RNA sequence: AAACAUUUUAUCAUUAUAGAACACUCAUAUCGAUAAAAUGAUUUUAACUACUU
Numbered sequence: 001a002a003a004c005a006u007u008u009u010a011u012c013a014u015u016a017u018a019g020a021a022c023a024c025u026c027a028u029a030u031c032g033a034u035a036a037a038a039u040g041a042u043u044u045u046a047a048c049u050a051c052u053u
Base pairs, nucleotide, nucleotide: 011033012032015029016028017027
RNA: Plastid-atpF group II-D1 intron
Organism: Mikania micrantha